Shown here is an 84-nucleotide sequence from Methanospirillum hungatei, a member of the family "tRNA".

RNA sequence: GCCGAGAUAGUCUAGUCCGGGAAGGCGGUGGUCUUGAAAACCACUGGUGGUAACACCUCGGGAGUUCAAAUCUCCCUUUCGGCG
Numbered sequence: 001g002c003c004g005a006g007a008u009a010g011u012c013u014a015g016u017c018c019g020g021g022a023a024g025g026c027g028g029u030g031g032u033c034u035u036g037a038a039a040a041c042c043a044c045u046g047g048u049g050g051u052a053a054c055a056c057c058u059c060g061g062g063a064g065u066u067c068a069a070a071u072c073u074c075c076c077u078u079u080c081g082g083c084g
Stems, first nucleotide, its partner, number of pairs: 001083007010026004028044005060076005
A reference for the family is Hou (1993), "The tertiary structure of tRNA and the development of the genetic code", Trends Biochem Sci. A search with the family's covariance model found it, with a score of 52 bits. The base pairs follow the family's consensus structure, which is taken from published work.